[Rfam]
Background
The family of this 125-nucleotide sequence from Oceanospirillum linum is "Ribosomal S15 leader". The family's RNA type in Rfam is cis-regulatory leader. Rfam describes the family as follows. The E. coli Ribosomal S15 gene 5' UTR can form two alternative structures. One that is a series of three hairpins, The other includes a pseudoknot. This structure causes translational regulation of the S15 protein. The alignment of this family contains only the final two hairpins which are conserved in other species, and also includes the complete region that forms the alternate structures. The literature on the family includes a 1996 paper in Biochimie by Benard et al., "Pseudoknot and translational control in the expression of the S15 ribosomal protein".

RNA sequence: UAGGCUAACUGUAAAUAUGCGCGGUUAGCCUGAAUAUAUGAUUCGCAUAUUUUAUCAGGAGAAGCAUCAUGGCUUUAACUGCAGAAAAAAAAGCAGAAAUCGUUAAAGAAUACGCACGUGGCGAA
Numbered sequence: 001u002a003g004g005c006u007a008a009c010u011g012u013a014a015a016u017a018u019g020c021g022c023g024g025u026u027a028g029c030c031u032g033a034a035u036a037u038a039u040g041a042u043u044c045g046c047a048u049a050u051u052u053u054a055u056c057a058g059g060a061g062a063a064g065c066a067u068c069a070u071g072g073c074u075u076u077a078a079c080u081g082c083a084g085a086a087a088a089a090a091a092a093g094c095a096g097a098a099a100u101c102g103u104u105a106a107a108g109a110a111u112a113c114g115c116a117c118g119u120g121g122c123g124a125a
Base pairs, nucleotide, nucleotide: 007026008025009024010023011022012021052078058076059075060074061073